[Rfam]
RNA sequence: CCCUCGCUCAACAAAUCGCUAUUCGAAGCUUCCAAACAGAGAUACUUGGCUUCGGCCUCGUAUCUUGUCUUCCGAGACCUUUAUGCUUCGGGAGAAAGUCCCCGGACAAACUCCUUCUCGGAGUCUGCGGAAACGCGCCGCCAUAGAAGCACCGCGGCUGACCUCUUGCACCUUGGCCCAAUUCGCGCGCAUCCACCCUUUCUGUCGCUACAUCCGUCUUUCUGCAAGUCCUCACCAGCAUCCAGCUGCGUCUCUUGGCCCCCAUGGAUGAAGAUAUGAGUCCGCGCUUGGAGCACAAUGCUGGACUCACUGGUGUCGAGCUCGCGUCUGCGGGUGACAGUCUAGCCGUGGUGACGUGAAUUGUGGUGUCGGGCGCUGAGGACUUGUUGUCGAAGUCGAUAGGCAUGCGAUUGCUCAAUAUUCAUUGGGUUACUCGAUGGGGCUUAUUCUUGAGGCGAGG
Numbered sequence: 001c002c003c004u005c006g007c008u009c010a011a012c013a014a015a016u017c018g019c020u021a022u023u024c025g026a027a028g029c030u031u032c033c034a035a036a037c038a039g040a041g042a043u044a045c046u047u048g049g050c051u052u053c054g055g056c057c058u059c060g061u062a063u064c065u066u067g068u069c070u071u072c073c074g075a076g077a078c079c080u081u082u083a084u085g086c087u088u089c090g091g092g093a094g095a096a097a098g099u100c101c102c103c104g105g106a107c108a109a110a111c112u113c114c115u116u117c118u119c120g121g122a123g124u125c126u127g128c129g130g131a132a133a134c135g136c137g138c139c140g141c142c143a144u145a146g147a148a149g150c151a152c153c154g155c156g157g158c159u160g161a162c163c164u165c166u167u168g169c170a171c172c173u174u175g176g177c178c179c180a181a182u183u184c185g186c187g188c189g190c191a192u193c194c195a196c197c198c199u200u201u202c203u204g205u206c207g208c209u210a211c212a213u214c215c216g217u218c219u220u221u222c223u224g225c226a227a228g229u230c231c232u233c234a235c236c237a238g239c240a241u242c243c244a245g246c247u248g249c250g251u252c253u254c255u256u257g258g259c260c261c262c263c264a265u266g267g268a269u270g271a272a273g274a275u276a277u278g279a280g281u282c283c284g285c286g287c288u289u290g291g292a293g294c295a296c297a298a299u300g301c302u303g304g305a306c307u308c309a310c311u312g313g314u315g316u317c318g319a320g321c322u323c324g325c326g327u328c329u330g331c332g333g334g335u336g337a338c339a340g341u342c343u344a345g346c347c348g349u350g351g352u353g354a355c356g357u358g359a360a361u362u363g364u365g366g367u368g369u370c371g372g373g374c375g376c377u378g379a380g381g382a383c384u385u386g387u388u389g390u391c392g393a394a395g396u397c398g399a400u401a402g403g404c405a406u407g408c409g410a411u412u413g414c415u416c417a418a419u420a421u422u423c424a425u426u427g428g429g430u431u432a433c434u435c436g437a438u439g440g441g442g443c444u445u446a447u448u449c450u451u452g453a454g455g456c457g458a459g460g
Stems, first nucleotide, its partner, number of pairs: 002460006008453004014412006023092001024090006039066007096445003100442004126137004320335006338363004348355002414429006
The record is a 460-nucleotide RNA sequence from Moelleriella libera, which matches "RNase MRP" in Rfam.
The family has 66 seed sequences and 3,510 matches in Rfam 15.1.
Rfam classes the family as a ribozyme.
Lineage of the source: Eukaryota > Pezizomycotina > leotiomyceta > Moelleriella > Moelleriella libera.
It scores 98 bits against the family's covariance model.
Pairs were carried over by alignment from the consensus structure, which is taken from published work.